[Rfam]
RNA sequence: CGCGCCGACCCGCUCAAUCGUGACCAUCACGAACCGGGGACCCAGUGCACGUCCGGGGUGAAUCCGCGAGCCACGGCCCGCGGUAGGGCGACUUCCCGCCCGAAUCCGUCAGCUAACCCGGUAGGCGGUGUCGGAAGGAGUU
Numbered sequence: 001c002g003c004g005c006c007g008a009c010c011c012g013c014u015c016a017a018u019c020g021u022g023a024c025c026a027u028c029a030c031g032a033a034c035c036g037g038g039g040a041c042c043c044a045g046u047g048c049a050c051g052u053c054c055g056g057g058g059u060g061a062a063u064c065c066g067c068g069a070g071c072c073a074c075g076g077c078c079c080g081c082g083g084u085a086g087g088g089c090g091a092c093u094u095c096c097c098g099c100c101c102g103a104a105u106c107c108g109u110c111a112g113c114u115a116a117c118c119c120g121g122u123a124g125g126c127g128g129u130g131u132c133g134g135a136a137g138g139a140g141u142u
Stems, first nucleotide, its partner, number of pairs: 003127004011031002033122006043055001056107003064083004086101004
RNA: c-di-AMP riboswitch aptamer (ydaO/yuaA leader)
Organism: Micromonospora rhizosphaerae